[Rfam]
RNA sequence: GGCUGAUCCAAGGGUAGUGAGUUAUCUCAGUUGAUUGUUCACGGUCACAGAUCGAAGUCCUUGUUCUACGCUUUCUCCCUUCCCACUACUGUACUUGACUAGUCUUUA
Numbered sequence: 001g002g003c004u005g006a007u008c009c010a011a012g013g014g015u016a017g018u019g020a021g022u023u024a025u026c027u028c029a030g031u032u033g034a035u036u037g038u039u040c041a042c043g044g045u046c047a048c049a050g051a052u053c054g055a056a057g058u059c060c061u062u063g064u065u066c067u068a069c070g071c072u073u074u075c076u077c078c079c080u081u082c083c084c085a086c087u088a089c090u091g092u093a094c095u096u097g098a099c100u101a102g103u104c105u106u107u108a
Stems, first nucleotide, its partner, number of pairs: 001104005007098002010096002014092002016087004021082001030069002033066002
RNA: Y RNA
Organism: Homo sapiens